Rfam assigns this 86-nucleotide RNA from Caenimonas sedimenti to the family "SAH (S-adenosyl-L-homocysteine) riboswitch aptamer". It scores 56 bits against the family's covariance model. Rfam links the family to the GO terms S-adenosylhomocysteine metabolic process and regulation of gene expression.
RNA sequence: CAAUCCGAGGAGCGUUGCAGCGCCGCCAUCUUCCACGAUGCGCCGGCGUGAGGCUCGGACCUGAUUCGCAACGACGCUCACCCACU
Numbered sequence: 001c002a003a004u005c006c007g008a009g010g011a012g013c014g015u016u017g018c019a020g021c022g023c024c025g026c027c028a029u030c031u032u033c034c035a036c037g038a039u040g041c042g043c044c045g046g047c048g049u050g051a052g053g054c055u056c057g058g059a060c061c062u063g064a065u066u067c068g069c070a071a072c073g074a075c076g077c078u079c080a081c082c083c084a085c086u
Stems, first nucleotide, its partner, number of pairs: 004059005021048005